[Rfam]
RNA: c-di-AMP riboswitch aptamer (ydaO/yuaA leader)
RNA sequence: GUGUAUUUAUUGCGCCAAGUGAGACGAAAAGCGGGGGAACCAAGCUCUUUAAGAGCACAGGGGCGAAUUUUCAGUGUGACACCCUGAAAAAGGACAUCUCUCAGUCCUAGCCCGUCAGCUAACCUCGUCAGCAUUGAGGGAAGACUGU
Numbered sequence: 001g002u003g004u005a006u007u008u009a010u011u012g013c014g015c016c017a018a019g020u021g022a023g024a025c026g027a028a029a030a031g032c033g034g035g036g037g038a039a040c041c042a043a044g045c046u047c048u049u050u051a052a053g054a055g056c057a058c059a060g061g062g063g064c065g066a067a068u069u070u071u072c073a074g075u076g077u078g079a080c081a082c083c084c085u086g087a088a089a090a091a092g093g094a095c096a097u098c099u100c101u102c103a104g105u106c107c108u109a110g111c112c113c114g115u116c117a118g119c120u121a122a123c124c125u126c127g128u129c130a131g132c133a134u135u136g137a138g139g140g141a142a143g144a145c146u147g148u
Stems, first nucleotide, its partner, number of pairs: 011133003020028001031128006041060001061113003069089006092107004